Background:
SAM riboswitch aptamer (S box leader): a 115-nucleotide RNA sequence from Bacillus anthracis. NCBI's taxonomy places the organism under Bacteria, Bacillati, Bacillota, Caryophanales, Bacillus anthracis.

[Rfam]
RNA sequence: CUCUUAUCAAGAGUGGCGGAGGGACUGGCCCGAUGAUGCCCGGCAACCGAGCUUAUGACGUAUAAGCUAAGGUGCUAAUUCCUGCAAAAUGAGUUUUCGUUUUGGAAGAUAAGAG
Number, nucleotide and partner (000 for none) at each position: 001c115002u114003c113004u112005u111006a110007u109008c108009a000010a000011g000012a000013g041014u000015g040016g039017c038018g000019g000020a000021g031022g030023g029024a000025c084026u000027g082028g081029c023030c022031c021032g000033a000034u000035g000036a000037u000038g017039c016040c015041c013042g076043g075044c074045a073046a000047c072048c071049g000050a068051g067052c066053u065054u064055a063056u000057g000058a000059c000060g000061u000062a000063u055064a054065a053066g052067c051068u050069a000070a000071g048072g047073u045074g044075c043076u042077a000078a000079u000080u107081c028082c027083u000084g025085c104086a103087a102088a101089a100090u099091g000092a000093g000094u000095u000096u000097u000098c000099g090100u089101u088102u087103u086104g085105g000106a000107a080108g008109a007110u006111a005112a004113g003114a002115g001